[Rfam]
RNA: c-di-AMP riboswitch aptamer (ydaO/yuaA leader)
RNA sequence: UACCGGAUGCCGCCGAGUCGCUCAUCGCAGCGAGCCGGGGACCCACCGCAGCACUGGGGUGAAUCCUGACCUGGGCAGAGUCCAGGCCGGGUAGGGCGACUUCCAGCCCGAAUCCGUCAGCUAACUCGGUAGGCGGCCGCGGAAGACCCA
Numbered sequence: 001u002a003c004c005g006g007a008u009g010c011c012g013c014c015g016a017g018u019c020g021c022u023c024a025u026c027g028c029a030g031c032g033a034g035c036c037g038g039g040g041a042c043c044c045a046c047c048g049c050a051g052c053a054c055u056g057g058g059g060u061g062a063a064u065c066c067u068g069a070c071c072u073g074g075g076c077a078g079a080g081u082c083c084a085g086g087c088c089g090g091g092u093a094g095g096g097c098g099a100c101u102u103c104c105a106g107c108c109c110g111a112a113u114c115c116g117u118c119a120g121c122u123a124a125c126u127c128g129g130u131a132g133g134c135g136g137c138c139g140c141g142g143a144a145g146a147c148c149c150a
Base pairs, nucleotide, nucleotide: 011135012134013133014132018033019032020031021030022029034130035129036128037127038126039125044056045055057115058114059113065091066090067089068088094109095108096107097106